[Rfam]
The family of this 60-nucleotide sequence from Paenibacillus arenilitoris is "Fluoride riboswitch aptamer (crcB RNA motif)".
The base pairs follow the family's consensus structure, which is taken from published work.
RNA sequence: GCGAAAUUUGGCGAUGGAGUUCGCCAUAACCGCCUUAGCGCUAAUGACUCCUACCAGGCA
Numbered sequence: 001g002c003g004a005a006a007u008u009u010g011g012c013g014a015u016g017g018a019g020u021u022c023g024c025c026a027u028a029a030c031c032g033c034c035u036u037a038g039c040g041c042u043a044a045u046g047a048c049u050c051c052u053a054c055c056a057g058g059c060a
Stems, first nucleotide, its partner, number of pairs: 010025004016051006032041002